The family of this 86-nucleotide sequence from Ethanoligenens harbinense is "RAGATH-28 RNA". The family's RNA type in Rfam is small RNA.
[Rfam]
RNA sequence: GGGCGGUUGAUUCGUCCCAAACCGGGUGCCGGAGGUGAGAUGGACCAAGAGAACCGGGGCUUUUGAAAGCCGCGGGAUGGCGAAGC
Numbered sequence: 001g002g003g004c005g006g007u008u009g010a011u012u013c014g015u016c017c018c019a020a021a022c023c024g025g026g027u028g029c030c031g032g033a034g035g036u037g038a039g040a041u042g043g044a045c046c047a048a049g050a051g052a053a054c055c056g057g058g059g060c061u062u063u064u065g066a067a068a069g070c071c072g073c074g075g076g077a078u079g080g081c082g083a084a085g086c
Stems, first nucleotide, its partner, number of pairs: 001022001005018002054075003058071004
NCBI's taxonomy places the organism under Bacteria, Bacillati, Clostridia, Ethanoligenens, Ethanoligenens harbinense. It is one of the family's seed sequences.